[Rfam]
RNA sequence: CAACCUGUCCAGUGAUGGUCAGCUGAAUCAUCAGAAGUCAGCAGAGGUCAUAGUACUUAUCUACUCGAGAAGAUAAGGAAGGAC
Number, nucleotide and partner (000 for none) at each position: 001c025002a024003a000004c000005c022006u021007g020008u000009c018010c017011a016012g000013u000014g000015a000016u011017g010018g009019u000020c007021a006022g005023c000024u002025g001026a000027a000028u000029c000030a000031u000032c000033a000034g000035a000036a000037g000038u045039c044040a000041g000042c000043a000044g039045a038046g000047g084048u083049c082050a000051u000052a000053g000054u000055a000056c077057u076058u075059a074060u073061c072062u000063a000064c000065u000066c000067g000068a000069g000070a000071a000072g061073a060074u059075a058076a057077g056078g000079a000080a000081g000082g049083a048084c047

The family of this 84-nucleotide RNA sequence from Peribacillus muralis is "Group II catalytic intron D1-D4-1". From the family's description: Group II introns are found in rRNA, tRNA and mRNA of organelles in fungi, plants and protists, and also in mRNA in bacteria. The pairing is the family consensus, mapped onto this sequence. Taxonomically the source falls in Peribacillus (Bacteria, Bacillati, Bacillota, Bacillaceae).